RNA sequence: CCCGCGACAAGACGGAAAGACCCCAUGGAGCUUUACUGCAGCUUGAUAUUGAACUUGGGUACGAUCUGUACAGGAUAGGUGGGAGCCUUGGAAGCCGGAGCGCCAGCUUCGGUGGAGGCGCCGUUGGGAUACCACCCUGAUCGUAUCUAGGUUCUAACCUGGUACCCUAAACGGGUACGGGGACCGUGUCAGGCGGGCAGUUUGACUGGGGCGGUCGCCUCCUAAAGUGUAACGGAGGCGUCCCAAGGUUCCCUCAGAAUGGUUGGAAAUCAUUCGAAGAGUGCAAAGGCAGAAGGGAGCUUGACUGCGAGACCUACAAGUCGAGCAGGGACGAAAGUCGGGCUUAGUGAUCCGGUGGUACCGCAUGGAAGGGCCAUCGCUCAACGGAUAAAAGCUACCCUGGGGAUAACAGGCUUAUCUCCCCCAAGAGUCCACAUCGACGGGGAGGUUUGGCACCUCGAUGUCGGCUCAUCGCAUCCUGGGGCUGAAGUAGGUCCCAAGGGUUGGGCUGUUCGCCCAUUAAAGCGGUACGCGAGCUGGGUUCAGAACGUCGUGAGACAGUUCGGUCCCUAUCUGUCGUGGGCGUA
Numbered sequence: 001c002c003c004g005c006g007a008c009a010a011g012a013c014g015g016a017a018a019g020a021c022c023c024c025a026u027g028g029a030g031c032u033u034u035a036c037u038g039c040a041g042c043u044u045g046a047u048a049u050u051g052a053a054c055u056u057g058g059g060u061a062c063g064a065u066c067u068g069u070a071c072a073g074g075a076u077a078g079g080u081g082g083g084a085g086c087c088u089u090g091g092a093a094g095c096c097g098g099a100g101c102g103c104c105a106g107c108u109u110c111g112g113u114g115g116a117g118g119c120g121c122c123g124u125u126g127g128g129a130u131a132c133c134a135c136c137c138u139g140a141u142c143g144u145a146u147c148u149a150g151g152u153u154c155u156a157a158c159c160u161g162g163u164a165c166c167c168u169a170a171a172c173g174g175g176u177a178c179g180g181g182g183a184c185c186g187u188g189u190c191a192g193g194c195g196g197g198c199a200g201u202u203u204g205a206c207u208g209g210g211g212c213g214g215u216c217g218c219c220u221c222c223u224a225a226a227g228u229g230u231a232a233c234g235g236a237g238g239c240g241u242c243c244c245a246a247g248g249u250u251c252c253c254u255c256a257g258a259a260u261g262g263u264u265g266g267a268a269a270u271c272a273u274u275c276g277a278a279g280a281g282u283g284c285a286a287a288g289g290c291a292g293a294a295g296g297g298a299g300c301u302u303g304a305c306u307g308c309g310a311g312a313c314c315u316a317c318a319a320g321u322c323g324a325g326c327a328g329g330g331a332c333g334a335a336a337g338u339c340g341g342g343c344u345u346a347g348u349g350a351u352c353c354g355g356u357g358g359u360a361c362c363g364c365a366u367g368g369a370a371g372g373g374c375c376a377u378c379g380c381u382c383a384a385c386g387g388a389u390a391a392a393a394g395c396u397a398c399c400c401u402g403g404g405g406a407u408a409a410c411a412g413g414c415u416u417a418u419c420u421c422c423c424c425c426a427a428g429a430g431u432c433c434a435c436a437u438c439g440a441c442g443g444g445g446a447g448g449u450u451u452g453g454c455a456c457c458u459c460g461a462u463g464u465c466g467g468c469u470c471a472u473c474g475c476a477u478c479c480u481g482g483g484g485c486u487g488a489a490g491u492a493g494g495u496c497c498c499a500a501g502g503g504u505u506g507g508g509c510u511g512u513u514c515g516c517c518c519a520u521u522a523a524a525g526c527g528g529u530a531c532g533c534g535a536g537c538u539g540g541g542u543u544c545a546g547a548a549c550g551u552c553g554u555g556a557g558a559c560a561g562u563u564c565g566g567u568c569c570c571u572a573u574c575u576g577u578c579g580u581g582g583g584c585g586u587a
Stems, first nucleotide, its partner, number of pairs: 001583008010575003014570002022404004027400002029396005035201004042193007051154016068137001078136005085119003094113008158181003162178006204216004217239006240385001242342002248300006254280002257275006281290002305328004311322003330339003353379007361372002413454003417451001418448007428438002465540001466538004470532001471529005478503002481498006505519005546564004550559003